This 163-nucleotide sequence from Streptomyces sp. H-KF8 belongs to the Rfam family "c-di-AMP riboswitch aptamer (ydaO/yuaA leader)". Taxonomically the source falls in Streptomyces (Bacteria, Actinomycetes, Kitasatosporales, Streptomycetaceae).
RNA sequence: CUUCGAUGAACUCACGCACGGCAGGAGCGGGGGACCCAGGUAAGCCGCCGGACCGGUUCGCACCCGGAACGGCUCGGGGUGAAGCCGUGCCCGCAGCAGGGCACGGCCGGGCACUCUCCCGCCCGAACCCGACAGCUCACCUCGCAGGCGUAGGAGAGGAACA
Numbered sequence: 001c002u003u004c005g006a007u008g009a010a011c012u013c014a015c016g017c018a019c020g021g022c023a024g025g026a027g028c029g030g031g032g033g034a035c036c037c038a039g040g041u042a043a044g045c046c047g048c049c050g051g052a053c054c055g056g057u058u059c060g061c062a063c064c065c066g067g068a069a070c071g072g073c074u075c076g077g078g079g080u081g082a083a084g085c086c087g088u089g090c091c092c093g094c095a096g097c098a099g100g101g102c103a104c105g106g107c108c109g110g111g112c113a114c115u116c117u118c119c120c121g122c123c124c125g126a127a128c129c130c131g132a133c134a135g136c137u138c139a140c141c142u143c144g145c146a147g148g149c150g151u152a153g154g155a156g157a158g159g160a161a162c163a
Stems, first nucleotide, its partner, number of pairs: 004150002007147001012025002027145006037076001077130003085106008109124004